Annotation:
MIR8565 microRNA precursor family: a 154-nucleotide sequence from Amborella trichopoda. Lineage of the source: Eukaryota > Streptophytina > Embryophyta > Tracheophyta > Amborella. Rfam links the family to the GO terms miRNA-mediated post-transcriptional gene silencing and RISC complex. The family's consensus secondary structure was predicted with RNAalifold.

RNA sequence: CCCACACCUAUAUGUGUAGGACCCCAAAUGAUCAUCAGUAAAUUUGGCACAGAUUUCUAGAAAAGUUAUCACAUGGGUGUCAAACUUGACUUUUUUAGAGAUCUGUGUCAAAUUUAAUGCUGAUCCUUUGCGGUCCUACACACAUGGGUGUGGG
Numbered sequence: 001c002c003c004a005c006a007c008c009u010a011u012a013u014g015u016g017u018a019g020g021a022c023c024c025c026a027a028a029u030g031a032u033c034a035u036c037a038g039u040a041a042a043u044u045u046g047g048c049a050c051a052g053a054u055u056u057c058u059a060g061a062a063a064a065g066u067u068a069u070c071a072c073a074u075g076g077g078u079g080u081c082a083a084a085c086u087u088g089a090c091u092u093u094u095u096u097a098g099a100g101a102u103c104u105g106u107g108u109c110a111a112a113u114u115u116a117a118u119g120c121u122g123a124u125c126c127u128u129u130g131c132g133g134u135c136c137u138a139c140a141c142a143c144a145u146g147g148g149u150g151u152g153g154g
Base pairs, nucleotide, nucleotide: 002153003152004151005150006149007148008147009146010145011144013142015140016139017138018137019136020135021134022133023132025130026129027128028127030125031124032123034121036119037118039116040115041114042113043112044111045110046109047108048107049106050105051104052103053102054101055100056099057098058097059096060095061094062093063092064091065090066089067088068087069082071080072079073078
Dot-bracket structure: .((((((((((.(.(((((((((.((((.(((.(.((.(((((((((((((((((((((((((((((((.(((....))).)....)))))))))))))))))))))))))))))).)).).))).)))).))))))))).).)))))))))).